This 90-nucleotide RNA from Aurantimonas coralicida belongs to the Rfam family "Glycine riboswitch aptamer". The base pairs follow the family's consensus structure. Clan: Glycine riboswitch clan. This family represents the bacterial glycine riboswitch. The organism belongs to Aurantimonas coralicida, within Bacteria. A search with the family's covariance model found it, with a score of 69 bits.

RNA sequence: CAGACGCUAGCGGGAGAGACCGGCCGCAAGGCCGGCGCCGAAGGAGCAACCGCCCCGGAAACUCUCAGGCAAAAGGACCGCCUGCGUCUC
Numbered sequence: 001c002a003g004a005c006g007c008u009a010g011c012g013g014g015a016g017a018g019a020c021c022g023g024c025c026g027c028a029a030g031g032c033c034g035g036c037g038c039c040g041a042a043g044g045a046g047c048a049a050c051c052g053c054c055c056c057g058g059a060a061a062c063u064c065u066c067a068g069g070c071a072a073a074a075g076g077a078c079c080g081c082c083u084g085c086g087u088c089u090c
Stems, first nucleotide, its partner, number of pairs: 006085002010081004020035004037070003040066002044064003050058002